[Rfam]
RNA sequence: CUCUGGGUCGCUAACAAAGAUCCAGGGCAAAAGAG
Numbered sequence: 001c002u003c004u005g006g007g008u009c010g011c012u013a014a015c016a017a018a019g020a021u022c023c024a025g026g027g028c029a030a031a032a033g034a035g
Base pairs, nucleotide, nucleotide: 001027002026003025004024005023006022007021008020
A member of the RNA family "L31-Firmicutes ribosomal protein leader" from Gorillibacterium massiliense, 35 nucleotides long. Its Rfam clan is "Ribosomal Protein L31 Leader clan". For this family Rfam cites "Discovery of 20 novel ribosomal leader candidates in bacteria and archaea" (Eckert and Weinberg, BMC Microbiol, 2020). Rfam classes the family as a cis-regulatory leader. Rfam's curators put it in the seed alignment. Lineage of the source: Bacteria > Bacillota > Bacilli > Caryophanales > Gorillibacterium.